[Rfam]
RNA: Small nucleolar RNA Z266
RNA sequence: AAAUAUAAGGAUGAUGAUUCAAUUAGAUGUGUGAAAGGAGUAAUCCUUUUUGAACUCAACAUUUUUGAGGCAUUUGAUAUAUCUGACUUUAUAAUC
Dot-bracket structure: .(.(((((((............................................................................))))))).).